[Rfam]
RNA: glmS glucosamine-6-phosphate activated ribozyme aptamer
Organism: Hungatella hathewayi
RNA sequence: UAGCAAAGCUAAGCGCCAUGCACCACAGUCUGCGCACGUGAACAGCGAAAGCUGGCGGAUUGGGGUUAACGAGGUGAAGAGAUUAUCGAACUUUCGGCGGGUACUCUUCCAUGCCGCUUCGGGCGUGUGAUACCGGAUGAAAUAUGCGGGCAACUGCAAAACAACCAUCCUGUAACCGAAGCAU
Numbered sequence: 001u002a003g004c005a006a007a008g009c010u011a012a013g014c015g016c017c018a019u020g021c022a023c024c025a026c027a028g029u030c031u032g033c034g035c036a037c038g039u040g041a042a043c044a045g046c047g048a049a050a051g052c053u054g055g056c057g058g059a060u061u062g063g064g065g066u067u068a069a070c071g072a073g074g075u076g077a078a079g080a081g082a083u084u085a086u087c088g089a090a091c092u093u094u095c096g097g098c099g100g101g102u103a104c105u106c107u108u109c110c111a112u113g114c115c116g117c118u119u120c121g122g123g124c125g126u127g128u129g130a131u132a133c134c135g136g137a138u139g140a141a142a143u144a145u146g147c148g149g150g151c152a153a154c155u156g157c158a159a160a161a162c163a164a165c166c167a168u169c170c171u172g173u174a175a176c177c178g179a180a181g182c183a184u
Stems, first nucleotide, its partner, number of pairs: 002060001004058001076109005086097004110127006131174003135170003145158005
Dot-bracket structure: .(.(.....................................................).)...............(((((.....((((....)))).......)))))((((((......))))))...(((.(((.......(((((....))))).........))).)))..........